[Rfam]
Overview:
Rfam assigns this 119-nucleotide RNA sequence from Parvibaculum lavamentivorans to the family "Guanidine-I riboswitch aptamer". Rfam's curators put it in the seed alignment. Its family is annotated with regulation of gene expression in the Gene Ontology. This family represents a conserved RNA structure found upstream of the ykkC and yxkD genes in Bacillus subtilis and related genes in other bacteria. Rfam 15.1 lists 1,509 matches to the family in 1,281 species.

RNA sequence: GUUGGCAGCGGCUAGGGUUCCGGCUUCGCGUGUAGUUGUUUGCGAAGUGCUGGUCCGAGAGCCGCACCCUGUCCGGUGAACAGCGGGCAGGUACACGGCGGGACAAAAGCCCGGGAGAC
Numbered sequence: 001g002u003u004g005g006c007a008g009c010g011g012c013u014a015g016g017g018u019u020c021c022g023g024c025u026u027c028g029c030g031u032g033u034a035g036u037u038g039u040u041u042g043c044g045a046a047g048u049g050c051u052g053g054u055c056c057g058a059g060a061g062c063c064g065c066a067c068c069c070u071g072u073c074c075g076g077u078g079a080a081c082a083g084c085g086g087g088c089a090g091g092u093a094c095a096c097g098g099c100g101g102g103a104c105a106a107a108a109g110c111c112c113g114g115g116a117g118a119c
Stems, first nucleotide, its partner, number of pairs: 008065005015056002020053002022050001023048008068091007094114001096117001100112003